Notes: The family of this 95-nucleotide RNA from Leifsonia sp. CL147 is "Glycine riboswitch aptamer". The pairing is the family consensus, mapped onto this sequence.

[Rfam]
RNA sequence: GAGGUCGAUGCGGGAGAGUCGCACGCGCAGGCGGGCGACACCGAAGGAGCAAUCCUCCCCGACAAUCUCUCAGGUACGCGUACCGCAUCGAACUG
Numbered sequence: 001g002a003g004g005u006c007g008a009u010g011c012g013g014g015a016g017a018g019u020c021g022c023a024c025g026c027g028c029a030g031g032c033g034g035g036c037g038a039c040a041c042c043g044a045a046g047g048a049g050c051a052a053u054c055c056u057c058c059c060c061g062a063c064a065a066u067c068u069c070u071c072a073g074g075u076a077c078g079c080g081u082a083c084c085g086c087a088u089c090g091a092a093c094u095g
Stems, first nucleotide, its partner, number of pairs: 006090008019038004040075003043071002047069003053062002